[Rfam]
RNA sequence: GUACAUUCUCAGGGCGGGGUGAGACUCCCCACCGGCGGUAAUCAUCCUAUGGGAUGUCAGCCCGCGAGCGCCUAUUUGCAUCUAGGUAUUAGUGUGCAGCUAGGGUCAGCAGAUCUGGUGAAGUGUGCAACAAGCCAUCUAUUCCAGAGCCGACGGUAAUGAGCACCGAGUGCACUAAGUCCGGAUGAAAGAGAAUAUAA
Numbered sequence: 001g002u003a004c005a006u007u008c009u010c011a012g013g014g015c016g017g018g019g020u021g022a023g024a025c026u027c028c029c030c031a032c033c034g035g036c037g038g039u040a041a042u043c044a045u046c047c048u049a050u051g052g053g054a055u056g057u058c059a060g061c062c063c064g065c066g067a068g069c070g071c072c073u074a075u076u077u078g079c080a081u082c083u084a085g086g087u088a089u090u091a092g093u094g095u096g097c098a099g100c101u102a103g104g105g106u107c108a109g110c111a112g113a114u115c116u117g118g119u120g121a122a123g124u125g126u127g128c129a130a131c132a133a134g135c136c137a138u139c140u141a142u143u144c145c146a147g148a149g150c151c152g153a154c155g156g157u158a159a160u161g162a163g164c165a166c167c168g169a170g171u172g173c174a175c176u177a178a179g180u181c182c183g184g185a186u187g188a189a190a191g192a193g194a195a196u197a198u199a200a
Base pairs, nucleotide, nucleotide: 003198005196006195007194008193009192010191017029018028019027033152034151035065036064037063038062060150061149068110069109114148115147116146117145118144154183155182156181
FMN riboswitch aptamer (RFN element): a 200-nucleotide sequence from Shewanella loihica.
It scores 87 bits against the family's covariance model.